The family of this 100-nucleotide RNA is "PhotoRC-II RNA".
RNA sequence: CAACAUAUUCCUACUGCUCCCAACCGAGACCUACGUAGGCAGUAUAAUACUUCGUCUCUCAUAUCCGAAAGUGAAGGGAUUUUCGGAAAUAAGUAUCGCA
Numbered sequence: 001c002a003a004c005a006u007a008u009u010c011c012u013a014c015u016g017c018u019c020c021c022a023a024c025c026g027a028g029a030c031c032u033a034c035g036u037a038g039g040c041a042g043u044a045u046a047a048u049a050c051u052u053c054g055u056c057u058c059u060c061a062u063a064u065c066c067g068a069a070a071g072u073g074a075a076g077g078g079a080u081u082u083u084c085g086g087a088a089a090u091a092a093g094u095a096u097c098g099c100a
Base pairs, nucleotide, nucleotide: 014042015041016040017039018038019035026058027057028056029055030054065086066085067084068083069082070081071080